RNA sequence: UUAUAAGAGAAAGUUCAUUUUUUAGGUUCAUUCAAUAAAUGAUGUAUCUCGUUCUUAAUAUAAACUAGAUGCAUCAUUUAUUGAAUGAAUCUAAAAAGUGAACUUUCUCUUAUAA
Numbered sequence: 001u002u003a004u005a006a007g008a009g010a011a012a013g014u015u016c017a018u019u020u021u022u023u024a025g026g027u028u029c030a031u032u033c034a035a036u037a038a039a040u041g042a043u044g045u046a047u048c049u050c051g052u053u054c055u056u057a058a059u060a061u062a063a064a065c066u067a068g069a070u071g072c073a074u075c076a077u078u079u080a081u082u083g084a085a086u087g088a089a090u091c092u093a094a095a096a097a098g099u100g101a102a103c104u105u106u107c108u109c110u111u112a113u114a115a
Stems, first nucleotide, its partner, number of pairs: 002114006009107005015101011027089018049067001051065002
RNA: MIR2593 microRNA precursor family
Organism: Medicago truncatula